[Rfam]
RNA sequence: UGUACCAAUGAUGGUAAUUGGUCAAGUACAAGUCUUGGAUGAUGAGUAUUAUAGGUCUGAAACUGAGGUCCAA
Numbered sequence: 001u002g003u004a005c006c007a008a009u010g011a012u013g014g015u016a017a018u019u020g021g022u023c024a025a026g027u028a029c030a031a032g033u034c035u036u037g038g039a040u041g042a043u044g045a046g047u048a049u050u051a052u053a054g055g056u057c058u059g060a061a062a063c064u065g066a067g068g069u070c071c072a073a
Base pairs, nucleotide, nucleotide: 002071004069005068006067

The record is a 73-nucleotide sequence from Myotis lucifugus, which matches "Small nucleolar RNA SNORD113/SNORD114 family" in Rfam. Clan: SNORD74 clan. Rfam describes the family as follows. The imprinted human domain at 14q32 contains two clusters of tandemly repeated small nucleolar RNAs named 14q(I) and 14q(II) snoRNAs. These two clusters are named SNORD113 and SNORD114 respectively in the HGNC approved gene symbol nomenclature. The family has 59 seed sequences and 5,721 matches in Rfam 15.1. It scores 45 bits against the family's covariance model. The family's consensus secondary structure is taken from published work. It is annotated as a C/D-box small nucleolar RNA.